[Rfam]
RNA sequence: UGCUUUCAGACGCCAGGGUUUGUGUGGUUUUCUGGAUGCUCCUGCUCGUCACUCAGGCUGAGGCAGCCUUGG
Numbered sequence: 001u002g003c004u005u006u007c008a009g010a011c012g013c014c015a016g017g018g019u020u021u022g023u024g025u026g027g028u029u030u031u032c033u034g035g036a037u038g039c040u041c042c043u044g045c046u047c048g049u050c051a052c053u054c055a056g057g058c059u060g061a062g063g064c065a066g067c068c069u070u071g072g
Base pairs, nucleotide, nucleotide: 007022008021009020010019011018024067025066029063030062031061034058037055038054
The record is a 72-nucleotide RNA from Orthohepacivirus hominis, which matches "Hepatitis C virus stem-loop SL2531 and SL2549AU" in Rfam. Taxonomically the source falls in Orthohepacivirus (Viruses, Orthornavirae, Amarillovirales, Hepaciviridae). On this family, see Pirakitikulr et al., Mol Cell 2016: "The Coding Region of the HCV Genome Contains a Network of Regulatory RNA Structures". By type it is a cis-regulatory element. Pairs were carried over by alignment from the consensus structure, which was predicted with RNAfold.